[Rfam]
RNA sequence: UUUUUUUAACUUCGGUAUCGGUAUCUCCCAUCGUCAUCUGUACUUCUCCCUUUUGCCUCAGCUACCAAGCUGGGGUUUUU
Dot-bracket structure: ......................................................((((((((......))))))))....
Numbered sequence: 001u002u003u004u005u006u007u008a009a010c011u012u013c014g015g016u017a018u019c020g021g022u023a024u025c026u027c028c029c030a031u032c033g034u035c036a037u038c039u040g041u042a043c044u045u046c047u048c049c050c051u052u053u054u055g056c057c058u059c060a061g062c063u064a065c066c067a068a069g070c071u072g073g074g075g076u077u078u079u080u
Stems, first nucleotide, its partner, number of pairs: 055076008
Photosynthesis regulatory RNA1: an 80-nucleotide RNA from Nostoc minutum.
The family's RNA type in Rfam is small RNA.
Pairs were carried over by alignment from the consensus structure, which was predicted with CMfinder.
Rfam describes the family as follows. Formerly known as Syr1 discovered in Synechocystis sp PCC 6803, is a regulatory factor controlling photosynthetic functions. PsrR1 interacts with the ribosome binding regions of several photosynthesis-related mRNAs. In particular, psaL mRNA is processed by RNase E only in the presence of PsrR1.